[Rfam]
RNA sequence: AGCUUAACGCCUUGAAAACACACAUGCACCGUCACAUGGUCCCGGGUGCCGUCGACGAUUCGCCUUUCGAGGUCGAUCUCGCGGUCGGAUCCAUGGGGUGCGUGGAGGCCUAAC
Numbered sequence: 001a002g003c004u005u006a007a008c009g010c011c012u013u014g015a016a017a018a019c020a021c022a023c024a025u026g027c028a029c030c031g032u033c034a035c036a037u038g039g040u041c042c043c044g045g046g047u048g049c050c051g052u053c054g055a056c057g058a059u060u061c062g063c064c065u066u067u068c069g070a071g072g073u074c075g076a077u078c079u080c081g082c083g084g085u086c087g088g089a090u091c092c093a094u095g096g097g098g099u100g101c102g103u104g105g106a107g108g109c110c111u112a113a114c
Base pairs, nucleotide, nucleotide: 023104024103025102026101027100028099029098030097035095036094037093038092039091040089041088042087048085049084050083051082052081
Notes
The record is a 114-nucleotide sequence from Modicisalibacter muralis, which matches "t44 RNA" in Rfam. NCBI's taxonomy places the organism under Bacteria, Pseudomonadota, Oceanospirillales, Halomonadaceae, Modicisalibacter. The family's RNA type in Rfam is small RNA.